[Rfam]
RNA sequence: CGGGAGAACGGUGGUUAAGGAACUCUGCAAAAUGGCUCCGUAAGUUCGCGAUAAGGGGCGCCCACGCAAGUGGGCCACAGAAAAUCGGCUGUAUCGACUGUUUAUCAAAAACACAGGUCUCUGCUAACACGCAAGUGGAUGUAUAGAGACUGACGCCUGCCCGGUGUUGGUAGGUUAAGGAAGAUUGUUAGCAUUAGCGAAGCAAGCGACCGAAGCCCCAAUAAACGGCGGCCCUAACUAUGAGGGUCCUAAGGUAGCGAAGUUCCUUGUCGGGUAAGUUCCGACCUGCAUGAAAGGCGUAACGAAUUCAGCACUGUCUCAACCACCGACCCG
Dot-bracket structure: ((((....((((((((.(((..............(((((....(....).....)))))((((((....))))))(...).......((((.((((..(((.........)))..(((((((((...(((....)))...)..))))))))..((((.(((..(((((((..(((...((..(.((((..((....))...)))).)..))...))))))))..)))))((((((.......))))))(...).....(.........((((((.....))))))).........))))...)).)).))))....))).)))))))).))))
Numbered sequence: 001c002g003g004g005a006g007a008a009c010g011g012u013g014g015u016u017a018a019g020g021a022a023c024u025c026u027g028c029a030a031a032a033u034g035g036c037u038c039c040g041u042a043a044g045u046u047c048g049c050g051a052u053a054a055g056g057g058g059c060g061c062c063c064a065c066g067c068a069a070g071u072g073g074g075c076c077a078c079a080g081a082a083a084a085u086c087g088g089c090u091g092u093a094u095c096g097a098c099u100g101u102u103u104a105u106c107a108a109a110a111a112c113a114c115a116g117g118u119c120u121c122u123g124c125u126a127a128c129a130c131g132c133a134a135g136u137g138g139a140u141g142u143a144u145a146g147a148g149a150c151u152g153a154c155g156c157c158u159g160c161c162c163g164g165u166g167u168u169g170g171u172a173g174g175u176u177a178a179g180g181a182a183g184a185u186u187g188u189u190a191g192c193a194u195u196a197g198c199g200a201a202g203c204a205a206g207c208g209a210c211c212g213a214a215g216c217c218c219c220a221a222u223a224a225a226c227g228g229c230g231g232c233c234c235u236a237a238c239u240a241u242g243a244g245g246g247u248c249c250u251a252a253g254g255u256a257g258c259g260a261a262g263u264u265c266c267u268u269g270u271c272g273g274g275u276a277a278g279u280u281c282c283g284a285c286c287u288g289c290a291u292g293a294a295a296g297g298c299g300u301a302a303c304g305a306a307u308u309c310a311g312c313a314c315u316g317u318c319u320c321a322a323c324c325a326c327c328g329a330c331c332c333g
Stems, first nucleotide, its partner, number of pairs: 001333004009328008018319003035059005044049001060075006076080001088312004093307002095304002099113003116151008124141001128137003154299004159229003164226002166222005173217003179211002183207001185205004191198002230248006249253001259286001269285006